Rfam assigns this 104-nucleotide RNA sequence from Melghirimyces profundicolus to the family "pan motif".
It scores 40 bits against the family's covariance model.
Pairs were carried over by alignment from the consensus structure, which is taken from published work.
Taxonomically the source falls in Melghirimyces (Bacteria, Bacillati, Bacillota, Bacilli).
[Rfam]
RNA sequence: GCGGUGGCAUCCUGCGGGAGCCGCACGCAAAACUCCCUUUUACCAUCCGUGUUUUUCAUCCUUUUAUCCAUUCUGCUCUGAGCCCACGGGACGGAGACAGAGGU
Number, nucleotide and partner (000 for none) at each position: 001g028002c027003g026004g024005u023006g022007g021008c020009a000010u019011c018012c000013u000014g000015c000016g000017g000018g011019a010020g008021c007022c006023g005024c004025a000026c003027g002028c001029a000030a000031a000032a000033c000034u000035c000036c000037c000038u000039u000040u000041u000042a000043c000044c000045a000046u000047c000048c000049g000050u000051g000052u000053u000054u000055u000056u000057c000058a000059u000060c000061c000062u000063u000064u000065u000066a000067u000068c000069c000070a000071u000072u000073c100074u099075g098076c096077u095078c094079u093080g092081a000082g000083c090084c089085c000086a000087c000088g000089g084090g083091a000092c080093g079094g078095a077096g076097a000098c075099a074100g073101a000102g000103g000104u000